Rfam assigns this 489-nucleotide sequence from Pectobacterium parmentieri to the family "Soft rot Enterobacteriaceae Rev 24 asRNA". Rfam's curators write: From bacteria cultured under starvation conditions. NCBI's taxonomy places the organism under Bacteria, Pseudomonadota, Pectobacteriaceae, Pectobacterium, Pectobacterium parmentieri. The sequence is in the family's curated seed alignment. The base pairs follow the family's consensus structure, which was predicted with RNAfold. A reference for the family is Kwenda et al. (2016), "Discovery and profiling of small RNAs responsive to stress conditions in the plant pathogen Pectobacterium atrosepticum", BMC Genomics.
RNA sequence: GGCUGGUCAUCACAUCCACAAACUUGGACUGCUGCUCGCAAAUAAUGCGGGUAAUUCGCAGCCUGUCUUCGUGGGUAAGCAAAUUGAGAUAGUUAUGCGCCAGUUCGUUACUGAGGAUAUUGGUGCCGUCACUAAUACGCAGAAUACAGAUGCCUACCGGUGCCGACGCCACGAUCUUACGGUUAAAUUGCUCGUUCUCUUCCAGUUGAAACGCAUUCACUUCUGCAGGCAACAGCAUUUUCCGCUCAAACACCAGCGCCAACACGAACAAUAGAAUCGCCGAGAGGAUAUUCAGCACCAGCAUGUUGAUCAUCAAUCCGCCGAUAUGGGACAGCAGCACCUUCAGCGGCAGCGAGUACACAAUACUGAACGAAGUCGGCGGCAGCGCCUUCUUCAGAAUGAGUUCGUCAUAACCAUUCACAUAGCCAAAAUAGUUAUGCUCGGAGGGAUAGCCGCCUACCGAGGAAACAGAGAGCCCUUUGUCAUCGG
Numbered sequence: 001g002g003c004u005g006g007u008c009a010u011c012a013c014a015u016c017c018a019c020a021a022a023c024u025u026g027g028a029c030u031g032c033u034g035c036u037c038g039c040a041a042a043u044a045a046u047g048c049g050g051g052u053a054a055u056u057c058g059c060a061g062c063c064u065g066u067c068u069u070c071g072u073g074g075g076u077a078a079g080c081a082a083a084u085u086g087a088g089a090u091a092g093u094u095a096u097g098c099g100c101c102a103g104u105u106c107g108u109u110a111c112u113g114a115g116g117a118u119a120u121u122g123g124u125g126c127c128g129u130c131a132c133u134a135a136u137a138c139g140c141a142g143a144a145u146a147c148a149g150a151u152g153c154c155u156a157c158c159g160g161u162g163c164c165g166a167c168g169c170c171a172c173g174a175u176c177u178u179a180c181g182g183u184u185a186a187a188u189u190g191c192u193c194g195u196u197c198u199c200u201u202c203c204a205g206u207u208g209a210a211a212c213g214c215a216u217u218c219a220c221u222u223c224u225g226c227a228g229g230c231a232a233c234a235g236c237a238u239u240u241u242c243c244g245c246u247c248a249a250a251c252a253c254c255a256g257c258g259c260c261a262a263c264a265c266g267a268a269c270a271a272u273a274g275a276a277u278c279g280c281c282g283a284g285a286g287g288a289u290a291u292u293c294a295g296c297a298c299c300a301g302c303a304u305g306u307u308g309a310u311c312a313u314c315a316a317u318c319c320g321c322c323g324a325u326a327u328g329g330g331a332c333a334g335c336a337g338c339a340c341c342u343u344c345a346g347c348g349g350c351a352g353c354g355a356g357u358a359c360a361c362a363a364u365a366c367u368g369a370a371c372g373a374a375g376u377c378g379g380c381g382g383c384a385g386c387g388c389c390u391u392c393u394u395c396a397g398a399a400u401g402a403g404u405u406c407g408u409c410a411u412a413a414c415c416a417u418u419c420a421c422a423u424a425g426c427c428a429a430a431a432u433a434g435u436u437a438u439g440c441u442c443g444g445a446g447g448g449a450u451a452g453c454c455g456c457c458u459a460c461c462g463a464g465g466a467a468a469c470a471g472a473g474a475g476c477c478c479u480u481u482g483u484c485a486u487c488g489g
Stems, first nucleotide, its partner, number of pairs: 001105007008097003012093002014090003021085002030081004038076002042072002045069001047066006106488002112482005120473002124470002129466002142153001144151002157385001159383001161381007170372001176229003180225003184219001186217003190214002195211002199208001233368003237364003244259002279302002316357002319354003323350001327345004397419005404412001421439006441463004447458002450455001
Dot-bracket structure: ((((((((((.(((((....((.......((((....((..((.(.((((((........))))))..).))..)).))))..))..))).)).))).)))))))((....(((((...((..((...((...........(.((....)).)...(.(.(((((((..(.....(((.(((.(.(((.((...((..(........).)).))))).)...))).)))...(((.(((....((............))...................((....................)).............((.(((.(...((((...........))))....).))).))....))).)))...)..))))))).).)...........(((((..(.......)..))))).((((((.......)))))).((((..((.(....).)).)))).))..)).))....)))))....)).